Rfam assigns this 176-nucleotide RNA from Shigella boydii to the family "sok antitoxin (CssrC)". The source organism's lineage runs through Bacteria, Pseudomonadota, Gammaproteobacteria, Enterobacterales and Shigella boydii. For this family Rfam cites "An antisense RNA controls synthesis of an SOS-induced toxin evolved from an antitoxin" (Kawano et al., Mol Microbiol, 2007). The family's consensus secondary structure is taken from published work. Rfam links the family to the GO term mRNA binding.
RNA sequence: GGGUGCUUGAGGCUAUCUGUCUCAGGCAUGAACACUGAAAGGCAGAUAGAGAAAAGCCCCAGUUAACAUUUCGCGUCCUGCAAGACGCUUAACAUUAAUCUGAGGCCCAAUCUAUGUCUCACAAAUGUAGGUUAGCCUCUUACGUGCCGAAAGGCAAGGGGAAGCAGGCUAUGAAG
Numbered sequence: 001g002g003g004u005g006c007u008u009g010a011g012g013c014u015a016u017c018u019g020u021c022u023c024a025g026g027c028a029u030g031a032a033c034a035c036u037g038a039a040a041g042g043c044a045g046a047u048a049g050a051g052a053a054a055a056g057c058c059c060c061a062g063u064u065a066a067c068a069u070u071u072c073g074c075g076u077c078c079u080g081c082a083a084g085a086c087g088c089u090u091a092a093c094a095u096u097a098a099u100c101u102g103a104g105g106c107c108c109a110a111u112c113u114a115u116g117u118c119u120c121a122c123a124a125a126u127g128u129a130g131g132u133u134a135g136c137c138u139c140u141u142a143c144g145u146g147c148c149g150a151a152a153g154g155c156a157a158g159g160g161g162a163a164g165c166a167g168g169c170u171a172u173g174a175a176g
Base pairs, nucleotide, nucleotide: 001060002059003058005057006056007055008054013049014048015047016046017045018044019043020042021041022040026036061101062100064098065096066095069092070091102139103138104137105136106135109133110132111131112130113129114128115127116126117125143168145166147164